[Rfam]
RNA sequence: AAGCGUUGAUACAGGAUGUUGCGCCAGAGGGCAGUGUCCUGCGAGCUUUAUAAGGGUUUGGCAUUUACCACAAUCUGGCUAGAUGACCGGCGGUUGUCGAAAGAAAAUGUCAGAA
Numbered sequence: 001a002a003g004c005g006u007u008g009a010u011a012c013a014g015g016a017u018g019u020u021g022c023g024c025c026a027g028a029g030g031g032c033a034g035u036g037u038c039c040u041g042c043g044a045g046c047u048u049u050a051u052a053a054g055g056g057u058u059u060g061g062c063a064u065u066u067a068c069c070a071c072a073a074u075c076u077g078g079c080u081a082g083a084u085g086a087c088c089g090g091c092g093g094u095u096g097u098c099g100a101a102a103g104a105a106a107a108u109g110u111c112a113g114a115a
Base pairs, nucleotide, nucleotide: 001048002047003046004045012041013040014039015038016037017036018035019034020033021032022031024078025077026076027075061110062109063108082098083097084096085095086094087093088092
RNA: drum RNA
Organism: bacterium 1xD8-6